A member of the RNA family "Bacterial small signal recognition particle RNA" from [Eubacterium] saphenum, 100 nucleotides long. Rfam classes the family as a non-coding RNA gene. About the family: The signal recognition particle (SRP) is a universally conserved ribonucleoprotein involved in the co-translational targeting of proteins to membranes. Taxonomically the source falls in [Eubacterium] saphenum (Bacteria, Bacillati, Bacillota, Clostridia).
RNA sequence: GUUAAGGCCCUGUGCAAUAUGACACCACGAACCUUGUCAGGUCCUGACGGAAGCAGCAAUAAGAGGAUUGUCGUAUGUGCCACAGACCAGUCUUAUGGCA
Numbered sequence: 001g002u003u004a005a006g007g008c009c010c011u012g013u014g015c016a017a018u019a020u021g022a023c024a025c026c027a028c029g030a031a032c033c034u035u036g037u038c039a040g041g042u043c044c045u046g047a048c049g050g051a052a053g054c055a056g057c058a059a060u061a062a063g064a065g066g067a068u069u070g071u072c073g074u075a076u077g078u079g080c081c082a083c084a085g086a087c088c089a090g091u092c093u094u095a096u097g098g099c100a
Base pairs, nucleotide, nucleotide: 004094005093006092007091008090010085011084012083013082014081015077017076018075019074020073021072022071025066026065028063034059035058036057037056042051043050044049